The family of this 78-nucleotide sequence from Nicotiana tabacum is "MIR6145 microRNA precursor family".
The family's consensus secondary structure was predicted with RNAalifold.
A search with the family's covariance model found it, with a score of 56 bits.
RNA sequence: GUAAUGAAUAUUGUUCCAUGUAGCAUUGGCUCGCAUGUGAAUUUGGCGGCAAGUGCUCACGUUACAAUCUCCAUUACC
Numbered sequence: 001g002u003a004a005u006g007a008a009u010a011u012u013g014u015u016c017c018a019u020g021u022a023g024c025a026u027u028g029g030c031u032c033g034c035a036u037g038u039g040a041a042u043u044u045g046g047c048g049g050c051a052a053g054u055g056c057u058c059a060c061g062u063u064a065c066a067a068u069c070u071c072c073a074u075u076a077c078c
Stems, first nucleotide, its partner, number of pairs: 001077006008070001010068005017061001019059001022057006029050003